[Rfam]
RNA: radC RNA
Organism: Azoarcus taiwanensis
RNA sequence: AAGCUGCCCGCAUGUUCGCUGAUUCGUCAGCACAUGCCAGCAGCCAGGGUUUCAGGCUGCCGCGGUUUUUCCGCGCGACCCGCCAGUCCGCCUCGCAUCGUCCUGCGGAUGAGCGUUUCCCCAAGACGCCGAUGC
Numbered sequence: 001a002a003g004c005u006g007c008c009c010g011c012a013u014g015u016u017c018g019c020u021g022a023u024u025c026g027u028c029a030g031c032a033c034a035u036g037c038c039a040g041c042a043g044c045c046a047g048g049g050u051u052u053c054a055g056g057c058u059g060c061c062g063c064g065g066u067u068u069u070u071c072c073g074c075g076c077g078a079c080c081c082g083c084c085a086g087u088c089c090g091c092c093u094c095g096c097a098u099c100g101u102c103c104u105g106c107g108g109a110u111g112a113g114c115g116u117u118u119c120c121c122c123a124a125g126a127c128g129c130c131g132a133u134g135c
Base pairs, nucleotide, nucleotide: 011036012035013034014033015032018031019030020029021028022027040060041059042058043057044056045055048080049079050078062076063075064072065071105135106134107133113129114128115127116126117125118124
Dot-bracket structure: ..........(((((..(((((....))))))))))...((((((..[[[....)))))).((((.....))..)).]]]........................(((.....((((((.....))))))...)))